[Rfam]
RNA sequence: CCGGGACCACGCAACCUCCCGAUCAGGCGCGAGAGCGCUCAAGCGUUGC
Numbered sequence: 001c002c003g004g005g006a007c008c009a010c011g012c013a014a015c016c017u018c019c020c021g022a023u024c025a026g027g028c029g030c031g032a033g034a035g036c037g038c039u040c041a042a043g044c045g046u047u048g049c
Stems, first nucleotide, its partner, number of pairs: 002021005011049005026039005
The record is a 49-nucleotide RNA from Novosphingobium hassiacum, which matches "chrB-b RNA" in Rfam. The match comes from Rfam's covariance-model search (41 bits). The family's RNA type in Rfam is cis-regulatory element.